The record is a 109-nucleotide RNA sequence from Mycobacterium tuberculosis, which matches "Mycobacterium sRNA ncrMT1302" in Rfam. Rfam's curators put it in the seed alignment. For this family Rfam cites "A screen for non-coding RNA in Mycobacterium tuberculosis reveals a cAMP-responsive RNA that is expressed during infection" (Pelly et al., Gene, 2012). Rfam classes the family as a small RNA.
RNA sequence: UAGUGACCAAUCGAAAGUGCCGGAAGACGGGGUGAAGGCCGGCCGCGCAAGACCCGCAGAAGACGGUGUCAGACGCCCCCCGAGAGUCACGCCGGGUCUGCCCAUGUGU
Numbered sequence: 001u002a003g004u005g006a007c008c009a010a011u012c013g014a015a016a017g018u019g020c021c022g023g024a025a026g027a028c029g030g031g032g033u034g035a036a037g038g039c040c041g042g043c044c045g046c047g048c049a050a051g052a053c054c055c056g057c058a059g060a061a062g063a064c065g066g067u068g069u070c071a072g073a074c075g076c077c078c079c080c081c082g083a084g085a086g087u088c089a090c091g092c093c094g095g096g097u098c099u100g101c102c103c104a105u106g107u108g109u
Stems, first nucleotide, its partner, number of pairs: 003090005020042004028034001045076003054066003094103003